Shown here is a 93-nucleotide RNA sequence from Rhabdonatronobacter sediminivivens, a member of the family "Rhodo-rpoB RNA". The base pairs follow the family's consensus structure, which is taken from published work.

[Rfam]
RNA sequence: GGCUCGGGCGCAGGCCGGUGGGACGGUCUGCAGGAAUGGAGCCCACCCCGUUUCGCAAUGGGCGGUAGCGGCCGAGGCCCGGCGGCCGGCUGA
Numbered sequence: 001g002g003c004u005c006g007g008g009c010g011c012a013g014g015c016c017g018g019u020g021g022g023a024c025g026g027u028c029u030g031c032a033g034g035a036a037u038g039g040a041g042c043c044c045a046c047c048c049c050g051u052u053u054c055g056c057a058a059u060g061g062g063c064g065g066u067a068g069c070g071g072c073c074g075a076g077g078c079c080c081g082g083c084g085g086c087c088g089g090c091u092g093a
Stems, first nucleotide, its partner, number of pairs: 001043005010031008066092004070087005